[Rfam]
RNA sequence: GUUUACAGGGAGUUUUGUUGGUUUGCUUUCAGCUUCUGUCAAUUCCUGCUGUGCAAAUCCAUGCAAAGCUCUCUGUUUCU
Numbered sequence: 001g002u003u004u005a006c007a008g009g010g011a012g013u014u015u016u017g018u019u020g021g022u023u024u025g026c027u028u029u030c031a032g033c034u035u036c037u038g039u040c041a042a043u044u045c046c047u048g049c050u051g052u053g054c055a056a057a058u059c060c061a062u063g064c065a066a067a068g069c070u071c072u073c074u075g076u077u078u079c080u
Stems, first nucleotide, its partner, number of pairs: 005076014020060002022057005028051001031050003
The family of this 80-nucleotide sequence from Gouania willdenowi is "mir-19 microRNA precursor family". Pairs were carried over by alignment from the consensus structure, which was predicted with RNAalifold. It scores 61 bits against the family's covariance model. For this family Rfam cites "Embryonic stem cell-specific MicroRNAs" (Houbaviy et al., Dev Cell, 2003). The family is grouped with related families in Rfam's "mir-19 clan". Lineage of the source: Eukaryota > Chordata > Osteoglossocephalai > Eurypterygia > Gouania.